[Rfam]
RNA sequence: ACCCUCCGGUUCCCUUUCCCAUCGGAUCUGAACACCGAUCUUGGGUGUAAAGGAGGAAAAGUAACAGUGAAGCUGGCCUCACAGUGCUUGUAGUUUGUGGGCUAGUUUCAAACAAGG
Numbered sequence: 001a002c003c004c005u006c007c008g009g010u011u012c013c014c015u016u017u018c019c020c021a022u023c024g025g026a027u028c029u030g031a032a033c034a035c036c037g038a039u040c041u042u043g044g045g046u047g048u049a050a051a052g053g054a055g056g057a058a059a060a061g062u063a064a065c066a067g068u069g070a071a072g073c074u075g076g077c078c079u080c081a082c083a084g085u086g087c088u089u090g091u092a093g094u095u096u097g098u099g100g101g102c103u104a105g106u107u108u109c110a111a112a113c114a115a116g117g
Base pairs, nucleotide, nucleotide: 003056004055005054006053007052019045022044023043025040026039027038028037073105074104075103076102077101078100079099
RNA: Small nucleolar RNA SNORA61
Organism: Myotis brandtii